A member of the RNA family "mir-9256 microRNA precursor family" from Cnephaeus nilssonii, 67 nucleotides long.
RNA sequence: AUAUUCACUGAGUGGCCGGGUUAUUAUGAUCUCUGAACGCAUAAUAACCUGGCCACUCAGUAUAUAU
Numbered sequence: 001a002u003a004u005u006c007a008c009u010g011a012g013u014g015g016c017c018g019g020g021u022u023a024u025u026a027u028g029a030u031c032u033c034u035g036a037a038c039g040c041a042u043a044a045u046a047a048c049c050u051g052g053c054c055a056c057u058c059a060g061u062a063u064a065u066a067u
Base pairs, nucleotide, nucleotide: 004064007061008060009059010058011057012056013055014054015053016052017051019049020048021047022046023045024044025043026042027041028040
Record summary:
The family's consensus secondary structure was predicted with RNAalifold.